[Rfam]
RNA sequence: CGGUAACUCCGAAUCCUGAACAGGAUAGGAGUAACGGCUGUUUGGCACAGCCAUCGGUACGUCUGUUCGACAAAUCAACGGGGCAGGUCGCCCCACAAGAACAGGUCGUCUCGUAAACCCUAAUAUCCCAAUCAAGCGGUGCGGAACCGUGGGAAUCCUCGCGCUUCAGCGCGCGGA
Numbered sequence: 001c002g003g004u005a006a007c008u009c010c011g012a013a014u015c016c017u018g019a020a021c022a023g024g025a026u027a028g029g030a031g032u033a034a035c036g037g038c039u040g041u042u043u044g045g046c047a048c049a050g051c052c053a054u055c056g057g058u059a060c061g062u063c064u065g066u067u068c069g070a071c072a073a074a075u076c077a078a079c080g081g082g083g084c085a086g087g088u089c090g091c092c093c094c095a096c097a098a099g100a101a102c103a104g105g106u107c108g109u110c111u112c113g114u115a116a117a118c119c120c121u122a123a124u125a126u127c128c129c130a131a132u133c134a135a136g137c138g139g140u141g142c143g144g145a146a147c148c149g150u151g152g153g154a155a156u157c158c159u160c161g162c163g164c165u166u167c168a169g170c171g172c173g174c175g176g177a
Base pairs, nucleotide, nucleotide: 003035004034007031008030009029010028013026014025015024016023017022036052037051038050039049040048055113056112057111059109060108062105063104064103065102066101067100068099080094081093082092083091084090126154127153128152129151156177157176158175160173161172162171163170164169
Shown here is a 177-nucleotide RNA sequence from Halalkaliarchaeum desulfuricum, a member of the family "Sense overlapping transcript RNA 0042 (sot)". From the family's description: It is associated with IS1341-type transposase (tnpB) genes, at the 3'-end in H. salinarum NRC-1. The tetraloop structural motif may be functional. A reference for the family is Gomes-Filho et al. (2015), "Sense overlapping transcripts in IS1341-type transposase genes are functional non-coding RNAs in archaea", RNA Biol. Lineage of the source: Archaea > Methanobacteriota > Halobacteriales > Haloferacaceae > Halalkaliarchaeum. The family's RNA type in Rfam is small RNA. It scores 114 bits against the family's covariance model. Pairs were carried over by alignment from the consensus structure, which was predicted with RNAfold.